[Rfam]
RNA sequence: GGCAUAGAUACAAUUUUGGAGUACUUCAAAAAGUAUCUAUGCCGGUGAUUCAUAAAAUAAGAAGACCGGAUAGGAUAAGACAUCGCUAUUCGGUCUUUUUUUGCA
Number, nucleotide and partner (000 for none) at each position: 001g043002g042003c041004a040005u039006a038007g037008a036009u035010a034011c033012a000013a000014u031015u030016u029017u028018g027019g026020a000021g000022u000023a000024c000025u000026u019027c018028a017029a016030a015031a014032a000033g011034u010035a009036u008037c007038u006039a005040u004041g003042c002043c001044g000045g000046u000047g000048a000049u000050u000051c000052a000053u000054a000055a000056a000057a000058u000059a000060a000061g000062a000063a000064g000065a094066c093067c092068g091069g090070a089071u088072a087073g086074g084075a083076u000077a000078a000079g000080a000081c000082a000083u075084c074085g000086c073087u072088a071089u070090u069091c068092g067093g066094u065095c000096u000097u000098u000099u000100u000101u000102u000103g000104c000105a000
Shown here is a 105-nucleotide RNA sequence from Lactococcus fujiensis, a member of the family "trpB ncRNA motif". From the family's description: trpB ncRNA motif was reported as a strong cis regulatory motif candidate, with potential to be a cis regulatory riboswitch type, it have been identified in Firmicutes and Fusobacteria. The motif have been recognised upstream of an uncharacterized ABC transporter with strong homology to amino acid transporters. It is also occasionally located upstream of trpB gene, that codes for a tryptophan synthase. By type it is a cis-regulatory element.